[Rfam]
RNA sequence: CUUCUCCCAAUCUGCGCGGUUGCACUUGGGUGCUGUAGUGUAAUUGUCGUAAAUGGAGAGAGAGAGAAACGUGAGUUUGGUGGGUUCGUCAGGGAGGCCCGGCCGUGGCCUCGCUGCCCUUCCAAAGUCCUACAUUC
Numbered sequence: 001c002u003u004c005u006c007c008c009a010a011u012c013u014g015c016g017c018g019g020u021u022g023c024a025c026u027u028g029g030g031u032g033c034u035g036u037a038g039u040g041u042a043a044u045u046g047u048c049g050u051a052a053a054u055g056g057a058g059a060g061a062g063a064g065a066g067a068a069a070c071g072u073g074a075g076u077u078u079g080g081u082g083g084g085u086u087c088g089u090c091a092g093g094g095a096g097g098c099c100c101g102g103c104c105g106u107g108g109c110c111u112c113g114c115u116g117c118c119c120u121u122c123c124a125a126a127g128u129c130c131u132a133c134a135u136u137c
Base pairs, nucleotide, nucleotide: 002068003067004066005065006064008062011059012058013057018045019044020043021042022041023040024039025038076127077126078125080123082121083120084119091115092114095111096110097109098108099107